The family of this 101-nucleotide RNA is "skipping-rope RNA". The base pairs follow the family's consensus structure, which is taken from published work. The family's RNA type in Rfam is small RNA.

RNA sequence: UAUGUUAGAGGUUGAGAAGUAUUAAGUUACACUGUCGCAAUACGCCAAGCCCGGAAGGGAAGGUGACAAGAGAUGUGGGGAGGGCUGUCCCACCUAACUUA
Numbered sequence: 001u002a003u004g005u006u007a008g009a010g011g012u013u014g015a016g017a018a019g020u021a022u023u024a025a026g027u028u029a030c031a032c033u034g035u036c037g038c039a040a041u042a043c044g045c046c047a048a049g050c051c052c053g054g055a056a057g058g059g060a061a062g063g064u065g066a067c068a069a070g071a072g073a074u075g076u077g078g079g080g081a082g083g084g085c086u087g088u089c090c091c092a093c094c095u096a097a098c099u100u101a
Stems, first nucleotide, its partner, number of pairs: 001101002004098005011041004032087001034085003043070001044064003075093005